[Rfam]
RNA sequence: CGAUGGGGUAGAGGAGCAGGGUUCAUUAGUAAGCUGUUUGAGGAUGACAACAGAGAGAACAGAUGAAAGGGAACUUUUGCCGAAGUAGCCAUGUAUGUCGAAUGCAUGGGUGCUGGGGUUAUCUUGAAAAAGGAUGACACUGUCAUUAUAGAGACACUCUAUAAUGGGGAGCUACAGAUCGU
Numbered sequence: 001c002g003a004u005g006g007g008g009u010a011g012a013g014g015a016g017c018a019g020g021g022u023u024c025a026u027u028a029g030u031a032a033g034c035u036g037u038u039u040g041a042g043g044a045u046g047a048c049a050a051c052a053g054a055g056a057g058a059a060c061a062g063a064u065g066a067a068a069g070g071g072a073a074c075u076u077u078u079g080c081c082g083a084a085g086u087a088g089c090c091a092u093g094u095a096u097g098u099c100g101a102a103u104g105c106a107u108g109g110g111u112g113c114u115g116g117g118g119u120u121a122u123c124u125u126g127a128a129a130a131a132g133g134a135u136g137a138c139a140c141u142g143u144c145a146u147u148a149u150a151g152a153g154a155c156a157c158u159c160u161a162u163a164a165u166g167g168g169g170a171g172c173u174a175c176a177g178a179u180c181g182u
Stems, first nucleotide, its partner, number of pairs: 008175004016080005021074004032064001034062006084114004089109007115141002118138008143167009
Notes:
This 182-nucleotide RNA from Rossellomorea marisflavi belongs to the Rfam family "Lysine riboswitch aptamer". The source organism's lineage runs through Bacteria, Bacillati, Bacillota, Bacilli and Rossellomorea.